[Rfam]
RNA sequence: GCGAAGUGACAAUACAAAUUUAUUAAUCUGCUGAUACUACGAAUCUCGACAGGUUCCGAUCGC
Numbered sequence: 001g002c003g004a005a006g007u008g009a010c011a012a013u014a015c016a017a018a019u020u021u022a023u024u025a026a027u028c029u030g031c032u033g034a035u036a037c038u039a040c041g042a043a044u045c046u047c048g049a050c051a052g053g054u055u056c057c058g059a060u061c062g063c
Stems, first nucleotide, its partner, number of pairs: 001063004
Rfam assigns this 63-nucleotide RNA from Cannabis sativa to the family "Small nucleolar RNA snoR14". It is annotated as a C/D-box small nucleolar RNA. Lineage of the source: Eukaryota > Viridiplantae > Spermatophyta > Pentapetalae > Cannabis. Rfam 15.1 lists 668 matches to the family in 221 species.